Source information
This 133-nucleotide RNA sequence from Mustela putorius belongs to the Rfam family "U11 spliceosomal RNA". The family's RNA type in Rfam is spliceosomal small nuclear RNA. Its family is annotated with mRNA 5'-splice site recognition, U11 snRNP and pre-mRNA 5'-splice site binding in the Gene Ontology. The base pairs follow the family's consensus structure, which is taken from published work. The match comes from Rfam's covariance-model search (75 bits).
RNA sequence: AAAAAAGGGCUGUGUCAUGAGUGGCACAUGUUGGGCAGUUGCAUUGCUCUUCCUGUGAAAUGGACAUUAAGAGAUUUCAGAAUCAUAAUUUUCUUGUGUCUGAGCAGCUGUGAUCAUUGGUCCCAGUGCCCCA
Dot-bracket structure: .......((.(.(((((....)))))((.(..((((((.....))))))..).))((((((............)))))).).)).................(.((.((((.((((...)))).)))))).)..
Numbered sequence: 001a002a003a004a005a006a007g008g009g010c011u012g013u014g015u016c017a018u019g020a021g022u023g024g025c026a027c028a029u030g031u032u033g034g035g036c037a038g039u040u041g042c043a044u045u046g047c048u049c050u051u052c053c054u055g056u057g058a059a060a061u062g063g064a065c066a067u068u069a070a071g072a073g074a075u076u077u078c079a080g081a082a083u084c085a086u087a088a089u090u091u092u093c094u095u096g097u098g099u100c101u102g103a104g105c106a107g108c109u110g111u112g113a114u115c116a117u118u119g120g121u122c123c124c125a126g127u128g129c130c131c132c133a
Stems, first nucleotide, its partner, number of pairs: 008084002011081001013026005027055002030052001033049006056079006102131001104129002107127004112122004